[Rfam]
RNA sequence: UACAACACGUUGAGAAAGAAUAGUAACUAAUGAUUAGUUUUUAAAGAGAGUUUAUGGUUGGUGAAAAUAAACAAACAAUAUUAGUGAAUCUACUUUUGAGUGAUGCUAAUCACAUCCGGUUUGUUCCGUUAAAAACUGAUGAGGUGCUAGAGUAAUCUAGAACUAAGGUGGUACCGCGUAAUUUACGUCCUUAGA
Numbered sequence: 001u002a003c004a005a006c007a008c009g010u011u012g013a014g015a016a017a018g019a020a021u022a023g024u025a026a027c028u029a030a031u032g033a034u035u036a037g038u039u040u041u042u043a044a045a046g047a048g049a050g051u052u053u054a055u056g057g058u059u060g061g062u063g064a065a066a067a068u069a070a071a072c073a074a075a076c077a078a079u080a081u082u083a084g085u086g087a088a089u090c091u092a093c094u095u096u097u098g099a100g101u102g103a104u105g106c107u108a109a110u111c112a113c114a115u116c117c118g119g120u121u122u123g124u125u126c127c128g129u130u131a132a133a134a135a136c137u138g139a140u141g142a143g144g145u146g147c148u149a150g151a152g153u154a155a156u157c158u159a160g161a162a163c164u165a166a167g168g169u170g171g172u173a174c175c176g177c178g179u180a181a182u183u184u185a186c187g188u189c190c191u192u193a194g195a
Stems, first nucleotide, its partner, number of pairs: 007101002015096004026085006039075003050072006103115003117128003147160005165192004176188005
RNA: T-box leader
Organism: Haploplasma axanthum